[Rfam]
RNA sequence: CCGUCCCGCGUCGUGGACUGCCUGACCACUUCGGCGCGGUCCCGGCUACGCUGGCGGCGUGCGCCCGCUGCGGAAGGGACCGUGGAGGGCGCAAAGCCGACAGCCGUCGCACUCCAGGGAGCCCUUUCAUG
Numbered sequence: 001c002c003g004u005c006c007c008g009c010g011u012c013g014u015g016g017a018c019u020g021c022c023u024g025a026c027c028a029c030u031u032c033g034g035c036g037c038g039g040u041c042c043c044g045g046c047u048a049c050g051c052u053g054g055c056g057g058c059g060u061g062c063g064c065c066c067g068c069u070g071c072g073g074a075a076g077g078g079a080c081c082g083u084g085g086a087g088g089g090c091g092c093a094a095a096g097c098c099g100a101c102a103g104c105c106g107u108c109g110c111a112c113u114c115c116a117g118g119g120a121g122c123c124c125u126u127u128c129a130u131g
Stems, first nucleotide, its partner, number of pairs: 060093004065088002068085006096110002099108003
This 131-nucleotide RNA sequence from Streptomyces ferrugineus belongs to the Rfam family "Streptomyces-metH RNA". It is annotated as a small RNA. A search with the family's covariance model found it, with a score of 103 bits.